permuted transfer-messenger RNA: a 218-nucleotide RNA sequence from Rhizobiales bacterium GAS113. From the family's description: Bacterial tmRNA, also known as 10Sa RNA or SsrA, is named for its dual tRNA and mRNA-like properties. Its role is to liberate the mRNA from a stalled ribosome. To accomplish this part of the tmRNA is used as a reading frame that ends in a translation stop signal. The broken mRNA is replaced in the ribosome by the tmRNA and translation of the tmRNA leads to addition of a proteolysis tag to the incomplete protein enabling recognition by a protease. Recently a number of permuted tmRNA genes have been found encoded in two parts. tmRNAs have been identified in eubacteria and some chloroplasts but are absent from archaeal and eukaryote nuclear genomes. Its family is annotated with RNA catabolic process in the Gene Ontology.
[Rfam]
RNA sequence: GGCGAUAAAUGACGAUCGGAAUAAACCAUUCGGACCCGGGGGCGGUACCCGGCGCCUCCACCUGGAACCGGAACGGAUGACAGCCGGUUCGAGGCGGGGGCGAAAUAGGAUCGACGAGGGCGUAAAGGGUUUGUUUUUGCCCGGUAUGGUUCCACCGUUAUCGGACCUUAAGCACAGUUGCCAAUGACAACUAUGCUCCGGUUGCCGUAGCUGCGUAA
Numbered sequence: 001g002g003c004g005a006u007a008a009a010u011g012a013c014g015a016u017c018g019g020a021a022u023a024a025a026c027c028a029u030u031c032g033g034a035c036c037c038g039g040g041g042g043c044g045g046u047a048c049c050c051g052g053c054g055c056c057u058c059c060a061c062c063u064g065g066a067a068c069c070g071g072a073a074c075g076g077a078u079g080a081c082a083g084c085c086g087g088u089u090c091g092a093g094g095c096g097g098g099g100g101c102g103a104a105a106u107a108g109g110a111u112c113g114a115c116g117a118g119g120g121c122g123u124a125a126a127g128g129g130u131u132u133g134u135u136u137u138u139g140c141c142c143g144g145u146a147u148g149g150u151u152c153c154a155c156c157g158u159u160a161u162c163g164g165a166c167c168u169u170a171a172g173c174a175c176a177g178u179u180g181c182c183a184a185u186g187a188c189a190a191c192u193a194u195g196c197u198c199c200g201g202u203u204g205c206c207g208u209a210g211c212u213g214c215g216u217a218a
Stems, first nucleotide, its partner, number of pairs: 001141005014131004026120002030117003036052005053102007142157004